[Rfam]
Source information: Sense overlapping transcript RNA 0042 (sot): a 172-nucleotide sequence from uncultured archaeon A07HR60. Rfam's curators write: It is associated with IS1341-type transposase (tnpB) genes, at the 3'-end in H. salinarum NRC-1. The family has 2 seed sequences and 196 matches in Rfam 15.1. It is annotated as a small RNA.
RNA sequence: AGAUAACUCCGAGUCCUCAGAGUGAGGAUAGGAGUAACGGCUGUGUGGCACAGCCUUCGACAUACUUGUUCGACCGCGAGAGCGGGACGUUUCACACGAGAGAACAGGUCGUGUCGUAGACCGGCAAAUAUCCCAACUGCGGUACGGGAAGCCCCGGCGUUUACGCCGGGGA
Numbered sequence: 001a002g003a004u005a006a007c008u009c010c011g012a013g014u015c016c017u018c019a020g021a022g023u024g025a026g027g028a029u030a031g032g033a034g035u036a037a038c039g040g041c042u043g044u045g046u047g048g049c050a051c052a053g054c055c056u057u058c059g060a061c062a063u064a065c066u067u068g069u070u071c072g073a074c075c076g077c078g079a080g081a082g083c084g085g086g087a088c089g090u091u092u093c094a095c096a097c098g099a100g101a102g103a104a105c106a107g108g109u110c111g112u113g114u115c116g117u118a119g120a121c122c123g124g125c126a127a128a129u130a131u132c133c134c135a136a137c138u139g140c141g142g143u144a145c146g147g148g149a150a151g152c153c154c155c156g157g158c159g160u161u162u163a164c165g166c167c168g169g170g171g172a
Stems, first nucleotide, its partner, number of pairs: 004037001007034004013029007039055005058116006065108007084097001086095001131149004136143002152171008